[Rfam]
This 93-nucleotide sequence from Limosilactobacillus coleohominis belongs to the Rfam family "TPP riboswitch aptamer (THI element)". Vitamin B(1) in its active form thiamin pyrophosphate (TPP) is an essential coenzyme that is synthesised by coupling of pyrimidine and thiazole moieties in bacteria. The previously detected thiamin-regulatory element, thi box was extended, resulting in a new, highly conserved RNA secondary structure, the THI element, which is widely distributed in eubacteria and also occurs in some archaea. Analysis of operon structures identified a large number of new candidate thiamin-regulated genes, mostly transporters, in various prokaryotic organisms. The THI element is a riboswitch that directly binds to TPP to regulate gene expression through a variety of mechanisms in archaea, bacteria and eukaryotes. through a variety of mechanisms in archaea, bacteria and eukaryotes. The base pairs follow the family's consensus structure, which is taken from published work. It scores 79 bits against the family's covariance model.

RNA sequence: UUAACCUGUCUGGGGUGCUAUUUAGUUAGCUGAGAAAUACCCAUAGAACCUGAUCUAGUUAAUACUAGCGGAGGGAGACAGCAAUUAUUUGAU
Numbered sequence: 001u002u003a004a005c006c007u008g009u010c011u012g013g014g015g016u017g018c019u020a021u022u023u024a025g026u027u028a029g030c031u032g033a034g035a036a037a038u039a040c041c042c043a044u045a046g047a048a049c050c051u052g053a054u055c056u057a058g059u060u061a062a063u064a065c066u067a068g069c070g071g072a073g074g075g076a077g078a079c080a081g082c083a084a085u086u087a088u089u090u091g092a093u
Stems, first nucleotide, its partner, number of pairs: 006081005011043004016037001017030004049074003055068004